[Rfam]
RNA sequence: CCAGGGGCUUUCGCCCCUGGCUAUUUUCGAUCGCCCCGCCGGGGCU
Numbered sequence: 001c002c003a004g005g006g007g008c009u010u011u012c013g014c015c016c017c018u019g020g021c022u023a024u025u026u027u028c029g030a031u032c033g034c035c036c037c038g039c040c041g042g043g044g045c046u
Stems, first nucleotide, its partner, number of pairs: 001020008033045005
RNA: Acido-Lenti-1 RNA